RNA sequence: GACGGGCCUCCCCGCAUGGAAGCGUGGCCAACCGGGUCAGGUCGGGAACGAAGCAGCCCUAACCGCUGUGACCAGUGCCGGGAUCAGGCUCGUCACC
Dot-bracket structure: ...(((((((((.((.(((..(.((((......((((....(((....)))....))))...))))..)..))))..).))))...)))))......
Numbered sequence: 001g002a003c004g005g006g007c008c009u010c011c012c013c014g015c016a017u018g019g020a021a022g023c024g025u026g027g028c029c030a031a032c033c034g035g036g037u038c039a040g041g042u043c044g045g046g047a048a049c050g051a052a053g054c055a056g057c058c059c060u061a062a063c064c065g066c067u068g069u070g071a072c073c074a075g076u077g078c079c080g081g082g083a084u085c086a087g088g089c090u091c092g093u094c095a096c097c
Stems, first nucleotide, its partner, number of pairs: 004091005009083004014078001015075001017074003022069001024066004034059004042051003